[Rfam]
RNA sequence: UGCCGGGUGUGGGCGAAAUACAAUACCCGUAAGGGAAAAUAGCCCGCAGCUCCGAUGGCUGUUUUGAGCACCCGGCAAUUCCUCA
Numbered sequence: 001u002g003c004c005g006g007g008u009g010u011g012g013g014c015g016a017a018a019u020a021c022a023a024u025a026c027c028c029g030u031a032a033g034g035g036a037a038a039a040u041a042g043c044c045c046g047c048a049g050c051u052c053c054g055a056u057g058g059c060u061g062u063u064u065u066g067a068g069c070a071c072c073c074g075g076c077a078a079u080u081c082c083u084c085a
Stems, first nucleotide, its partner, number of pairs: 001077009011045004016040001026035003046062006